[Rfam]
RNA sequence: UUUUCCGAGGAGCGUUGCGACGGCCCGAGGCCACCGGUUCUGCCCGGGGACCCGGCCGCCAGGCUCGGAAACGCAGAUGCCGGGGUUGUCGACCCGUCCUGCGCGCAACGGCGCUCACCCCAC
Dot-bracket structure: .(((((((............(((((............................)))))......)))))))....................................................
Numbered sequence: 001u002u003u004u005c006c007g008a009g010g011a012g013c014g015u016u017g018c019g020a021c022g023g024c025c026c027g028a029g030g031c032c033a034c035c036g037g038u039u040c041u042g043c044c045c046g047g048g049g050a051c052c053c054g055g056c057c058g059c060c061a062g063g064c065u066c067g068g069a070a071a072c073g074c075a076g077a078u079g080c081c082g083g084g085g086u087u088g089u090c091g092a093c094c095c096g097u098c099c100u101g102c103g104c105g106c107a108a109c110g111g112c113g114c115u116c117a118c119c120c121c122a123c
Stems, first nucleotide, its partner, number of pairs: 002071007021058005